Shown here is an 82-nucleotide sequence from Zavarzinia aquatilis, a member of the family "Proteo-phage-1 RNA". Taxonomically the source falls in Zavarzinia (Bacteria, Pseudomonadota, Alphaproteobacteria, Zavarziniaceae). The family's consensus secondary structure is taken from published work. A search with the family's covariance model found it, with a score of 46 bits.
[Rfam]
RNA sequence: CCCUCGCCGGCGGGGCCUUGCUUGAGGAUAGCCGGAAGCGCGCAAAGUCGGGAGUGGCGCUGCGAUAACAACCCCGAACGCU
Numbered sequence: 001c002c003c004u005c006g007c008c009g010g011c012g013g014g015g016c017c018u019u020g021c022u023u024g025a026g027g028a029u030a031g032c033c034g035g036a037a038g039c040g041c042g043c044a045a046a047g048u049c050g051g052g053a054g055u056g057g058c059g060c061u062g063c064g065a066u067a068a069c070a071a072c073c074c075c076g077a078a079c080g081c082u
Stems, first nucleotide, its partner, number of pairs: 001015004007035005017026003037061004043057001048077004